Overview: A member of the RNA family "Small nucleolar RNA SNORA23" from Aquarana catesbeiana, 182 nucleotides long. The organism belongs to Aquarana, within Eukaryota. The members of this family belong to the H/ACA class of snoRNAs which are thought to guide the sites of modification of uridines to pseudouridines. This family includes human snoRNA ACA23 (SNORA23) and mouse snoMBI-1. ACA23 is predicted to guide the pseudouridylation of residue U3737 and U4331 of 28S rRNA. For this family Rfam cites "RNomics: an experimental approach that identifies 201 candidates for novel, small, non-messenger RNAs in mouse" (Huttenhofer et al., EMBO J, 2001). Its family is annotated with nucleolus and RNA processing in the Gene Ontology. It scores 130 bits against the family's covariance model. The family has 9 seed sequences and 1,092 matches in Rfam 15.1.
RNA sequence: GCAGUGCAGUGUGCGCAGUGUCAGUCUGUGUCUGGUGGAGCGGUGUGUUGGCGUGCUGCUGGCUCCCCGCUCUGCUCACACAUAUCCUGCAGCCGGAGAUGAACAUGAGAUCAUAGUACUGGUCUAGUGCCCGUCUGUGAGACGGUUCUACCACUGGCCGGCCUCCAAAUUCUCGUACAUGU
Numbered sequence: 001g002c003a004g005u006g007c008a009g010u011g012u013g014c015g016c017a018g019u020g021u022c023a024g025u026c027u028g029u030g031u032c033u034g035g036u037g038g039a040g041c042g043g044u045g046u047g048u049u050g051g052c053g054u055g056c057u058g059c060u061g062g063c064u065c066c067c068c069g070c071u072c073u074g075c076u077c078a079c080a081c082a083u084a085u086c087c088u089g090c091a092g093c094c095g096g097a098g099a100u101g102a103a104c105a106u107g108a109g110a111u112c113a114u115a116g117u118a119c120u121g122g123u124c125u126a127g128u129g130c131c132c133g134u135c136u137g138u139g140a141g142a143c144g145g146u147u148c149u150a151c152c153a154c155u156g157g158c159c160g161g162c163c164u165c166c167a168a169a170u171u172c173u174c175g176u177a178c179a180u181g182u
Stems, first nucleotide, its partner, number of pairs: 013090003029082003033078003036074006043067001045065001047063001050060003106175005119161006126155004131145005